[Rfam]
RNA sequence: AGCUGUGUGAUAAGCAUAAAGCGAAUUAUUCUUUCACCUUUUUUUAAAGAAUACCGUGUACUUUUCACUAAAAACAUCAUACAUUAAUUUUUGAAGAGCCCUGACAAAUUGCAAGUU
Numbered sequence: 001a002g003c004u005g006u007g008u009g010a011u012a013a014g015c016a017u018a019a020a021g022c023g024a025a026u027u028a029u030u031c032u033u034u035c036a037c038c039u040u041u042u043u044u045u046a047a048a049g050a051a052u053a054c055c056g057u058g059u060a061c062u063u064u065u066c067a068c069u070a071a072a073a074a075c076a077u078c079a080u081a082c083a084u085u086a087a088u089u090u091u092u093g094a095a096g097a098g099c100c101c102u103g104a105c106a107a108a109u110u111g112c113a114a115g116u117u
Base pairs, nucleotide, nucleotide: 004076005075006074008067009066010065012063013062014061016059017058018057027053028052029051030050031049032048033047034046100115102113103112
RNA: U5 spliceosomal RNA
Organism: Zingiber officinale